RNA sequence: GGGAGGGCAUUAUGCCAAAAAUUGCUUUGAAAUAUAUAUAUGAAAGUUGCUUUUAGCCUUCUGAAUUAAAAGGUGGAUAGAACAAGUCUUGUCGUCGAAAUAAAUUCAAGACCUACUUAUCUAUCAACAGAA
Dot-bracket structure: ..((((((..((.........(.(((((.(.(....).)...))))).)....))))))))..........((((((((....(.((((((...............)))))).)...)))))))).......